[Rfam]
RNA sequence: AGCUCAUCCAGAGGGGCAGAGGGAACGGCCCGUUGAAGCCCCGGCAACCAUCUCGGCGUAUCGCGCAUUCCGCGAGGCCGCCGGCGAAAAAGGUGCCAAUUCCGACCCGUCCGCGGGACAGAUGAGGA
Numbered sequence: 001a002g003c004u005c006a007u008c009c010a011g012a013g014g015g016g017c018a019g020a021g022g023g024a025a026c027g028g029c030c031c032g033u034u035g036a037a038g039c040c041c042c043g044g045c046a047a048c049c050a051u052c053u054c055g056g057c058g059u060a061u062c063g064c065g066c067a068u069u070c071c072g073c074g075a076g077g078c079c080g081c082c083g084g085c086g087a088a089a090a091a092g093g094u095g096c097c098a099a100u101u102c103c104g105a106c107c108c109g110u111c112c113g114c115g116g117g118a119c120a121g122a123u124g125a126g127g128a
Stems, first nucleotide, its partner, number of pairs: 003126006013042005021031003026104003043097004048093002051088001053086001101120001106117004
Dot-bracket structure: ..((((((....(((((...(((..[[[)))......)))))((((.((.(.(................................).)...))))))...(]]].((((....))))..)))))))..
The record is a 128-nucleotide RNA sequence from Saccharopolyspora erythraea, which matches "SAM riboswitch aptamer (S box leader)" in Rfam. Rfam's curators put it in the seed alignment. Pairs were carried over by alignment from the consensus structure, which is taken from published work. Taxonomically the source falls in Saccharopolyspora erythraea (Bacteria, Bacillati, Pseudonocardiaceae, Saccharopolyspora).